[Rfam]
Nucleotides: 078
Stems, first nucleotide, its partner, number of pairs: 001078004006073001008071001010070003014065013030049005
Number, partner (000 for none) and nucleotide at each position: 001078g002077u003076u004075u005000c006073u007000c008071u009000u010070g011069g012068g013000a014065g015064u016063g017062u018061u019060u020059g021058c022057u023056g024055u025054a026053u027000a028000a029000u030049u031048g032047g033046a034045u035000u036000u037000a038000a039000u040000g041000a042000a043000a044000u045034g046033u047032u048031u049030a050000g051000a052000g053026g054025u055024g056023u057022a058021g059020u060019a061018g062017g063016c064015a065014u066000g067000a068012u069011u070010u071008g072000a073006g074000u075004a076003g077002a078001u

This 78-nucleotide RNA sequence from Suricata suricatta belongs to the Rfam family "mir-1902 microRNA precursor family". A search with the family's covariance model found it, with a score of 80 bits. The family has 2 seed sequences and 1,188 matches in Rfam 15.1.